[Rfam]
RNA sequence: UGUGUGUGAUGAGUUGGCAGUGUAUUGUUAGCUGGUUGAAUAUAUAAAUAGCAUCAGCUAACAUGCACCUGCUAUCUUAUUGCAUACA
Numbered sequence: 001u002g003u004g005u006g007u008g009a010u011g012a013g014u015u016g017g018c019a020g021u022g023u024a025u026u027g028u029u030a031g032c033u034g035g036u037u038g039a040a041u042a043u044a045u046a047a048a049u050a051g052c053a054u055c056a057g058c059u060a061a062c063a064u065g066c067a068c069c070u071g072c073u074a075u076c077u078u079a080u081u082g083c084a085u086a087c088a
Stems, first nucleotide, its partner, number of pairs: 001088013015074006022066003027062010041050003